[Rfam]
RNA sequence: UAGGCUACUGUCCCAGGGAGGGAAAGCCGCUAUAUGCGGCAAGUACCUCUUCAACUGGGCAGUAAAAACC
Numbered sequence: 001u002a003g004g005c006u007a008c009u010g011u012c013c014c015a016g017g018g019a020g021g022g023a024a025a026g027c028c029g030c031u032a033u034a035u036g037c038g039g040c041a042a043g044u045a046c047c048u049c050u051u052c053a054a055c056u057g058g059g060c061a062g063u064a065a066a067a068a069c070c
Stems, first nucleotide, its partner, number of pairs: 006065001009062001012059005017050005026040005
A member of the RNA family "Hepatitis C virus stem-loop VII", 70 nucleotides long. It is one of the family's seed sequences. For this family Rfam cites "The Coding Region of the HCV Genome Contains a Network of Regulatory RNA Structures" (Pirakitikulr et al., Mol Cell, 2016).